[Rfam]
RNA sequence: GCUAUCGGCUCUGGAGAGCGGCUGACGUCUUGCGUCGGCCCACCGAAGGGGAUGGUGCCUGGCAGGACUAUCGAAGGGGGCUGCAUGAAUCGCUCUUUGGUUUUCCGCGCAACAGCGCCUAAUCUCUCAGGUUCGAGGACAGAGGGGCGGUU
Numbered sequence: 001g002c003u004a005u006c007g008g009c010u011c012u013g014g015a016g017a018g019c020g021g022c023u024g025a026c027g028u029c030u031u032g033c034g035u036c037g038g039c040c041c042a043c044c045g046a047a048g049g050g051g052a053u054g055g056u057g058c059c060u061g062g063c064a065g066g067a068c069u070a071u072c073g074a075a076g077g078g079g080g081c082u083g084c085a086u087g088a089a090u091c092g093c094u095c096u097u098u099g100g101u102u103u104u105c106c107g108c109g110c111a112a113c114a115g116c117g118c119c120u121a122a123u124c125u126c127u128c129a130g131g132u133u134c135g136a137g138g139a140c141a142g143a144g145g146g147g148c149g150g151u152u
Stems, first nucleotide, its partner, number of pairs: 006147001009144005020040008042132003045128002049126003055119001
Background:
Rfam assigns this 152-nucleotide RNA from Acidihalobacter ferrooxydans to the family "Glycine riboswitch aptamer". Lineage of the source: Bacteria > Gammaproteobacteria > Chromatiales > Ectothiorhodospiraceae > Acidihalobacter. A search with the family's covariance model found it, with a score of 39 bits.